[Rfam]
RNA sequence: UCGGGCCUCCAAGCAGCCGCCCGGUUAUUAAAGACGGUUCGUCUCAAGCGCUGC
Numbered sequence: 001u002c003g004g005g006c007c008u009c010c011a012a013g014c015a016g017c018c019g020c021c022c023g024g025u026u027a028u029u030a031a032a033g034a035c036g037g038u039u040c041g042u043c044u045c046a047a048g049c050g051c052u053g054c
Base pairs, nucleotide, nucleotide: 001024002023003022004021005020006019013054014053015052016051017050032044033043034042035041036040